[Rfam]
A member of the RNA family "c-di-AMP riboswitch aptamer (ydaO/yuaA leader)" from Anaerobacillus alkalidiazotrophicus, 145 nucleotides long. From the family's description: This family represents a conserved RNA structure found upstream of the ydaO and yuaA genes in Bacillus subtilis and related genes in other bacteria. NCBI's taxonomy places the organism under Bacteria, Bacillati, Bacilli, Caryophanales, Anaerobacillus. The match comes from Rfam's covariance-model search (98 bits).

RNA sequence: CCUAAAAAAUCGCUGAAUCAAAUUUGAGCGGGGGAACCAUUUUUUCAGUCCUCGACUGUAUGGGGUGAAUCUUACAUUAGUAAGGGGGAUACUCUUUUGUCCCUAACCCGGCAGCUAACCUCGUAAGCGUUAUUAAAGAGGAGGG
Numbered sequence: 001c002c003u004a005a006a007a008a009a010u011c012g013c014u015g016a017a018u019c020a021a022a023u024u025u026g027a028g029c030g031g032g033g034g035a036a037c038c039a040u041u042u043u044u045u046c047a048g049u050c051c052u053c054g055a056c057u058g059u060a061u062g063g064g065g066u067g068a069a070u071c072u073u074a075c076a077u078u079a080g081u082a083a084g085g086g087g088g089a090u091a092c093u094c095u096u097u098u099g100u101c102c103c104u105a106a107c108c109c110g111g112c113a114g115c116u117a118a119c120c121u122c123g124u125a126a127g128c129g130u131u132a133u134u135a136a137a138g139a140g141g142a143g144g145g
Stems, first nucleotide, its partner, number of pairs: 011129004018027003028124006038062002063109003071084004086103004